[Rfam]
RNA sequence: GCGCCCGUGAGGGCGAUCAGCUGAAAGAAGGCUGUAGCAAAAGGCACGACCGUAGGAACACGAAACGGCAGAGAGGCAGGGCGCGGGCGAUGAGCGUGCUAGGUAACGCAAAAUCCAACCGUCACCGAAAGACGCGUCAAGUAGAGCCGUGCGGCACGGGCCGAAAGUUCAUGCA
Numbered sequence: 001g002c003g004c005c006c007g008u009g010a011g012g013g014c015g016a017u018c019a020g021c022u023g024a025a026a027g028a029a030g031g032c033u034g035u036a037g038c039a040a041a042a043g044g045c046a047c048g049a050c051c052g053u054a055g056g057a058a059c060a061c062g063a064a065a066c067g068g069c070a071g072a073g074a075g076g077c078a079g080g081g082c083g084c085g086g087g088c089g090a091u092g093a094g095c096g097u098g099c100u101a102g103g104u105a106a107c108g109c110a111a112a113a114u115c116c117a118a119c120c121g122u123c124a125c126c127g128a129a130a131g132a133c134g135c136g137u138c139a140a141g142u143a144g145a146g147c148c149g150u151g152c153g154g155c156a157c158g159g160g161c162c163g164a165a166a167g168u169u170c171a172u173g174c175a
Stems, first nucleotide, its partner, number of pairs: 001018001002015005031174002037168002043162003047158002050154004065150005076142002080138006089115003094109004
Dot-bracket structure: ((((((....)))))..)............((....((....(((.((.((((...........(((((......((..((((((...(((..((((........))))...))).................))))))..))...)))))))))..)).)))....))....)).

Rfam assigns this 175-nucleotide RNA sequence to the family "Group II catalytic intron D1-D4-3". Rfam's curators put it in the seed alignment. Rfam 15.1 lists 4,274 matches to the family in 1,585 species.